The family of this 123-nucleotide RNA from Corymbia citriodora is "MIR397 microRNA precursor family". A reference for the family is Mica et al. (2009), "High throughput approaches reveal splicing of primary microRNA transcripts and tissue specific expression of mature microRNAs in Vitis vinifera", BMC Genomics. It scores 69 bits against the family's covariance model.
[Rfam]
RNA sequence: UUCAGAAACAUCAUUGAGUGCAGCGUUGAUGAAAUCGCUCGGUUCCACGAUUCUGGGGCAGUUCUUGCUUGACAGAACGGGACGGGAUCGGUUUCGCCAGCACUGCACUCAAUUAUGUCUCUA
Numbered sequence: 001u002u003c004a005g006a007a008a009c010a011u012c013a014u015u016g017a018g019u020g021c022a023g024c025g026u027u028g029a030u031g032a033a034a035u036c037g038c039u040c041g042g043u044u045c046c047a048c049g050a051u052u053c054u055g056g057g058g059c060a061g062u063u064c065u066u067g068c069u070u071g072a073c074a075g076a077a078c079g080g081g082a083c084g085g086g087a088u089c090g091g092u093u094u095c096g097c098c099a100g101c102a103c104u105g106c107a108c109u110c111a112a113u114u115a116u117g118u119c120u121c122u123a
Stems, first nucleotide, its partner, number of pairs: 006120001008118004013113011025101004030096006